Rfam assigns this 288-nucleotide RNA sequence from Canis lupus to the family "Nuclear RNase P".
Lineage of the source: Eukaryota > Deuterostomia > Carnivora > Canis > Canis lupus.
Rfam classes the family as a ribozyme.
For this family Rfam cites "Ribonuclease P: unity and diversity in a tRNA processing ribozyme" (Frank and Pace, Annu Rev Biochem, 1998).

[Rfam]
RNA sequence: AGGGAAACUUAUUGGUGGGGUUAUGAGCUGAGCUGAGUGUUUUGUGUCACUCUACUUCACAUCCCCUGGGAGGGUCUGAGGCUAGGACCAAGAGCGGCCCUCCUGGGUUUCAGGGAGGUGAGUUCUCUCUACCUGAGGGUAGACUGAGCAAGAGGUGCCGUGGACCCUGCCCUGGAGGGAGGAGGCUGGCAGAUGCCUCCUUAGCCAAAGCUUGAAACAGACUCAUGGCCAGUAAAGUGAGUUCAAUGACUGAGGGGUCUCAUAACCCAAUUCAGACUUCUCUGCACU
Numbered sequence: 001a002g003g004g005a006a007a008c009u010u011a012u013u014g015g016u017g018g019g020g021u022u023a024u025g026a027g028c029u030g031a032g033c034u035g036a037g038u039g040u041u042u043u044g045u046g047u048c049a050c051u052c053u054a055c056u057u058c059a060c061a062u063c064c065c066c067u068g069g070g071a072g073g074g075u076c077u078g079a080g081g082c083u084a085g086g087a088c089c090a091a092g093a094g095c096g097g098c099c100c101u102c103c104u105g106g107g108u109u110u111c112a113g114g115g116a117g118g119u120g121a122g123u124u125c126u127c128u129c130u131a132c133c134u135g136a137g138g139g140u141a142g143a144c145u146g147a148g149c150a151a152g153a154g155g156u157g158c159c160g161u162g163g164a165c166c167c168u169g170c171c172c173u174g175g176a177g178g179g180a181g182g183a184g185g186c187u188g189g190c191a192g193a194u195g196c197c198u199c200c201u202u203a204g205c206c207a208a209a210g211c212u213u214g215a216a217a218c219a220g221a222c223u224c225a226u227g228g229c230c231a232g233u234a235a236a237g238u239g240a241g242u243u244c245a246a247u248g249a250c251u252g253a254g255g256g257g258u259c260u261c262a263u264a265a266c267c268c269a270a271u272u273c274a275g276a277c278u279u280c281u282c283u284g285c286a287c288u
Base pairs, nucleotide, nucleotide: 001288002287003283004282005281008254009253010252011251013249017066018065019064020063035052036051037050038049039048040046076275077274078273079272080271086230088228089227100117101116102115103114104113118226119225120224121223122222123221124220127210128209255263257261